[Rfam]
RNA: TPP riboswitch aptamer (THI element)
Organism: Nakamurella sp. PAMC28650
RNA sequence: UGCCCGUCCCGCGGGAGCUCGCAGAUCGAGCUGAGAGGGUGGACCGAUUCGACGGCACCGUCGGUGCCGCCCCGUCAAGGCCACCGACCGCUUGAACCUGAUCCGGCCAGUACCGGCGCAGGAAGGGUAGGUAGUGGUGUC
Number, nucleotide and partner (000 for none) at each position: 001u000002g000003c000004c000005c000006g000007u000008c127009c126010c125011g091012c090013g089014g088015g000016a000017g031018c030019u029020c028021g027022c000023a000024g000025a000026u000027c021028g020029a019030g018031c017032u000033g000034a000035g000036a000037g000038g085039g084040u083041g082042g081043a000044c000045c000046g000047a000048u000049u000050c000051g000052a000053c000054g000055g000056c000057a000058c000059c000060g000061u000062c000063g000064g000065u000066g000067c000068c000069g000070c000071c000072c000073c000074g000075u000076c000077a000078a000079g000080g000081c042082c041083a040084c039085c038086g000087a000088c014089c013090g012091c011092u000093u000094g000095a000096a000097c122098c121099u120100g119101a000102u000103c116104c115105g114106g113107c000108c000109a000110g000111u000112a000113c106114c105115g104116g103117c000118g000119c100120a099121g098122g097123a000124a000125g010126g009127g008128u000129a000130g000131g000132u000133a000134g000135u000136g000137g000138u000139g000140u000141c000